[Rfam]
RNA sequence: CAAUCCCACCCUUUACUCGGAUCGUCCGGCACGUUCCUGCCGGUGAAGGAGAGCACA
Number, nucleotide and partner (000 for none) at each position: 001c000002a000003a000004u000005c000006c000007c000008a000009c000010c049011c048012u047013u046014u045015a044016c000017u000018c000019g000020g000021a000022u000023c000024g000025u000026c043027c042028g041029g040030c039031a038032c000033g000034u000035u000036c000037c000038u031039g030040c029041c028042g027043g026044u015045g014046a013047a012048g011049g010050a000051g000052a000053g000054c000055a000056c000057a000
Annotation: msiK RNA: a 57-nucleotide RNA from Kitasatospora sp. MMS16-BH015. It scores 51 bits against the family's covariance model.